[Rfam]
RNA sequence: AAAGAUCUUCAGGGCAGGGUGAUUAUGCAUAACAGCAGGAAAUUCCCUACCGGUGGUACAGCCCACGAGCCGUAAGGCAUGAUUCGGUGAGAUUCCGAAGCCGACAGUAUAGUCUGGAUGAAAGAAGAUGGCA
Numbered sequence: 001a002a003a004g005a006u007c008u009u010c011a012g013g014g015c016a017g018g019g020u021g022a023u024u025a026u027g028c029a030u031a032a033c034a035g036c037a038g039g040a041a042a043u044u045c046c047c048u049a050c051c052g053g054u055g056g057u058a059c060a061g062c063c064c065a066c067g068a069g070c071c072g073u074a075a076g077g078c079a080u081g082a083u084u085c086g087g088u089g090a091g092a093u094u095c096c097g098a099a100g101c102c103g104a105c106a107g108u109a110u111a112g113u114c115u116g117g118a119u120g121a122a123a124g125a126a127g128a129u130g131g132c133a
Stems, first nucleotide, its partner, number of pairs: 005129006017047003049113002051103002053066004061101002071077001083099005105116003
Shown here is a 133-nucleotide RNA sequence from Roseburia zhanii, a member of the family "FMN riboswitch aptamer (RFN element)". The source organism's lineage runs through Bacteria, Bacillati, Clostridia, Lachnospiraceae and Roseburia. The base pairs follow the family's consensus structure, which is taken from published work.